[Rfam]
RNA: mir-305 microRNA precursor family
RNA sequence: CAUGUUGAUUGUACUUCAUCAGGUGCUCUGGUUGCAUUUAUUCCCGGCACCUGAUAGAGUGCAAUUCAUAUG
Number, nucleotide and partner (000 for none) at each position: 001c072002a071003u070004g069005u000006u000007g000008a000009u000010u063011g062012u061013a000014c059015u058016u057017c000018a055019u000020c053021a052022g000023g050024u049025g048026c047027u046028c000029u000030g044031g043032u000033u000034g000035c000036a000037u000038u000039u000040a000041u000042u000043c031044c030045c000046g027047g026048c025049a024050c023051c000052u021053g020054a000055u018056a000057g016058a015059g014060u000061g012062c011063a010064a000065u000066u000067c000068a000069u004070a003071u002072g001